[Rfam]
RNA sequence: GGCGCUUCAGGUGGCUCUGGGUCGAAAGUUCUGACGACAGACCAGAAGCGGGAAGCCGUGGACGUCAUGUGUGAGGUCGCCGGUCUGUCGCAACGUCGUGCCUGCAGGCUGGCAGGUC
Numbered sequence: 001g002g003c004g005c006u007u008c009a010g011g012u013g014g015c016u017c018u019g020g021g022u023c024g025a026a027a028g029u030u031c032u033g034a035c036g037a038c039a040g041a042c043c044a045g046a047a048g049c050g051g052g053a054a055g056c057c058g059u060g061g062a063c064g065u066c067a068u069g070u071g072u073g074a075g076g077u078c079g080c081c082g083g084u085c086u087g088u089c090g091c092a093a094c095g096u097c098g099u100g101c102c103u104g105c106a107g108g109c110u111g112g113c114a115g116g117u118c
Stems, first nucleotide, its partner, number of pairs: 035090009048059004
RNA: Insertion sequence IS1222 ribosomal frameshifting element